Shown here is a 584-nucleotide part of an RNA from Bdellovibrio bacteriovorus, a member of the family "Bacterial small subunit ribosomal RNA". NCBI's taxonomy places the organism under Bacteria, Bdellovibrionota, Bdellovibrionales, Bdellovibrio, Bdellovibrio bacteriovorus.
[Rfam]
RNA sequence: UGACGGGGGCCCGCACAAGCGGUGGAGCAUGUGGUUUAAUUCGAUGCAACGCGAAGAACCUUACCUAGGCUUGACAUGUACUGGAAGACUGGCAGAAAUGUCGUCGCCCGCAAGGGUCGGUACACAGGUGCUGCAUGGCUGUCGUCAGCUCGUGUCGUGAGAUGUUGGGUUAAGUCCCGCAACGAGCGCAACCCCUGCAUUUAGUUGCCAGCAUUCAGUUGGGCACUCUAGAUGGACUGCCGGUGUUAAACCGGAGGAAGGUGGGGAUGACGUCAAGUCCUCAUGGCCCUUAUGCCUAGGGCUACACACGUGCUACAAUGGUAGUCACAGAGCGAAGCUAAGCCGCGAGGUAGAGCAAAUCGCUUAAAAGCUAUCUAAGUUCAGAUUGAUCUCUGCAACUCGAGAUCAUGAAGUUGGAAUCGCUAGUAAUCGCGGAUCAGAAUGCCGCGGUGAAUACGUUCCCGGGCCUUGUACACACCGCCCGUCACACCAUGAAAGUUGGCUGUACCAGAAGUCGCUGCGCUAACCGCAAGGAGGCAGGCGCCCAAGGUAUGGUCGAUGAUUGGGGUGAAGUCGUAACAAGG
Numbered sequence: 001u002g003a004c005g006g007g008g009g010c011c012c013g014c015a016c017a018a019g020c021g022g023u024g025g026a027g028c029a030u031g032u033g034g035u036u037u038a039a040u041u042c043g044a045u046g047c048a049a050c051g052c053g054a055a056g057a058a059c060c061u062u063a064c065c066u067a068g069g070c071u072u073g074a075c076a077u078g079u080a081c082u083g084g085a086a087g088a089c090u091g092g093c094a095g096a097a098a099u100g101u102c103g104u105c106g107c108c109c110g111c112a113a114g115g116g117u118c119g120g121u122a123c124a125c126a127g128g129u130g131c132u133g134c135a136u137g138g139c140u141g142u143c144g145u146c147a148g149c150u151c152g153u154g155u156c157g158u159g160a161g162a163u164g165u166u167g168g169g170u171u172a173a174g175u176c177c178c179g180c181a182a183c184g185a186g187c188g189c190a191a192c193c194c195c196u197g198c199a200u201u202u203a204g205u206u207g208c209c210a211g212c213a214u215u216c217a218g219u220u221g222g223g224c225a226c227u228c229u230a231g232a233u234g235g236a237c238u239g240c241c242g243g244u245g246u247u248a249a250a251c252c253g254g255a256g257g258a259a260g261g262u263g264g265g266g267a268u269g270a271c272g273u274c275a276a277g278u279c280c281u282c283a284u285g286g287c288c289c290u291u292a293u294g295c296c297u298a299g300g301g302c303u304a305c306a307c308a309c310g311u312g313c314u315a316c317a318a319u320g321g322u323a324g325u326c327a328c329a330g331a332g333c334g335a336a337g338c339u340a341a342g343c344c345g346c347g348a349g350g351u352a353g354a355g356c357a358a359a360u361c362g363c364u365u366a367a368a369a370g371c372u373a374u375c376u377a378a379g380u381u382c383a384g385a386u387u388g389a390u391c392u393c394u395g396c397a398a399c400u401c402g403a404g405a406u407c408a409u410g411a412a413g414u415u416g417g418a419a420u421c422g423c424u425a426g427u428a429a430u431c432g433c434g435g436a437u438c439a440g441a442a443u444g445c446c447g448c449g450g451u452g453a454a455u456a457c458g459u460u461c462c463c464g465g466g467c468c469u470u471g472u473a474c475a476c477a478c479c480g481c482c483c484g485u486c487a488c489a490c491c492a493u494g495a496a497a498g499u500u501g502g503c504u505g506u507a508c509c510a511g512a513a514g515u516c517g518c519u520g521c522g523c524u525a526a527c528c529g530c531a532a533g534g535a536g537g538c539a540g541g542c543g544c545c546c547a548a549g550g551u552a553u554g555g556u557c558g559a560u561g562a563u564u565g566g567g568g569u570g571a572a573g574u575c576g577u578a579a580c581a582a583g584g
Stems, first nucleotide, its partner, number of pairs: 001475002003472003007469007015459002019423005024316001026314008034305002040055004064300007077124007088104002091102004106117004127289002130287004136283002138278003141274001143272002148187006154163003166179004193266004198234007208223002212221002237257002240254005320375006332363003337356002342351003382413001387408007429451007478583001480580001483576002488570004493565003498560012514545001516543004522538003527534002